[Rfam]
RNA sequence: AAAAAAUAGGGGGUGUAGGGGAUGAAAUCCCCUGCCCGCUUUCAGGAAGGUGCUCAGGCUGCAAAACAGCCGUCGAAGGAAAC
Number, nucleotide and partner (000 for none) at each position: 001a000002a000003a000004a000005a000006a000007u000008a000009g000010g000011g000012g000013g000014u000015g035016u034017a033018g032019g031020g030021g029022a028023u000024g000025a000026a000027a000028u022029c021030c020031c019032c018033u017034g016035c015036c000037c000038g000039c000040u000041u000042u000043c000044a000045g000046g000047a000048a000049g000050g000051u000052g000053c000054u000055c000056a000057g071058g070059c069060u068061g067062c000063a000064a000065a000066a000067c061068a060069g059070c058071c057072g000073u000074c000075g000076a000077a000078g000079g000080a000081a000082a000083c000
A member of the RNA family "Clostridiales-2 RNA" from Alkaliphilus metalliredigens, 83 nucleotides long. Rfam classes the family as a small RNA. Taxonomically the source falls in Alkaliphilus metalliredigens (Bacteria, Bacillati, Bacillota, Peptostreptococcales). The family has 44 seed sequences and 285 matches in Rfam 15.1.